[Rfam]
RNA sequence: GGGGGCCGGGUGGGGUGCUGGCCCUGCUCCCGUGGGUUUCAGCUCUCGUUGGUGCUGGUGCUCAUGUGGGCCAUGUCACCUUCCCUUCACAGCU
Number, nucleotide and partner (000 for none) at each position: 001g000002g000003g090004g000005g088006c000007c000008g085009g084010g083011u000012g081013g080014g079015g000016u078017g077018c075019u073020g072021g071022c070023c069024c068025u000026g000027c000028u000029c000030c000031c066032g065033u064034g063035g062036g061037u060038u000039u058040c057041a056042g055043c054044u000045c052046u051047c000048g000049u000050u000051g046052g045053u000054g043055c042056u041057g040058g039059u000060g037061c036062u035063c034064a033065u032066g031067u000068g024069g023070g022071c021072c020073a019074u000075g018076u000077c017078a016079c014080c013081u012082u000083c010084c009085c008086u000087u000088c005089a000090c003091a000092g000093c000094u000
RNA: mir-9128 microRNA precursor family